[Rfam]
Background: The family of this 95-nucleotide RNA from Phoenix dactylifera is "Small nucleolar RNA snoR109". Rfam classes the family as an H/ACA-box small nucleolar RNA. It scores 38 bits against the family's covariance model. The family has 6 seed sequences and 680 matches in Rfam 15.1. The base pairs follow the family's consensus structure, which was predicted with WAR.
RNA sequence: UGGCUGUAGCUAUAUGAAUAAAGAGAAGAGGGAAGAAAACUGGUCGGCUUGCUCUCCUUGUUGUUGGCAACCCGCUUACCAAGCUUCCCACAUUA
Numbered sequence: 001u002g003g004c005u006g007u008a009g010c011u012a013u014a015u016g017a018a019u020a021a022a023g024a025g026a027a028g029a030g031g032g033a034a035g036a037a038a039a040c041u042g043g044u045c046g047g048c049u050u051g052c053u054c055u056c057c058u059u060g061u062u063g064u065u066g067g068c069a070a071c072c073c074g075c076u077u078a079c080c081a082a083g084c085u086u087c088c089c090a091c092a093u094u095a
Stems, first nucleotide, its partner, number of pairs: 030089006042076003046072002049069001051068003